[Rfam]
RNA sequence: GCAGCCCUGGCAAGUCUUAUACGGCCAGCUCCUACUGAAUCCCCCAGGACAGGAAUGUAGCAAGGGUAGGUGGUCGUAGCGGCGCGAUGUGAGUAACUUGCCAGUUU
Numbered sequence: 001g002c003a004g005c006c007c008u009g010g011c012a013a014g015u016c017u018u019a020u021a022c023g024g025c026c027a028g029c030u031c032c033u034a035c036u037g038a039a040u041c042c043c044c045c046a047g048g049a050c051a052g053g054a055a056u057g058u059a060g061c062a063a064g065g066g067u068a069g070g071u072g073g074u075c076g077u078a079g080c081g082g083c084g085c086g087a088u089g090u091g092a093g094u095a096a097c098u099u100g101c102c103a104g105u106u107u
Stems, first nucleotide, its partner, number of pairs: 008103008017092005022086002024083002
Shown here is a 107-nucleotide RNA from Taibaiella soli, a member of the family "Bacteroidales small SRP". Its Rfam clan is "SRP clan". Lineage of the source: Bacteria > Pseudomonadati > Bacteroidota > Chitinophagia > Taibaiella. Rfam classes the family as a non-coding RNA gene. The literature on the family includes a 2020 paper in Nat Commun by Ryan et al., "A high-resolution transcriptome map identifies small RNA regulation of metabolism in the gut microbe Bacteroides thetaiotaomicron".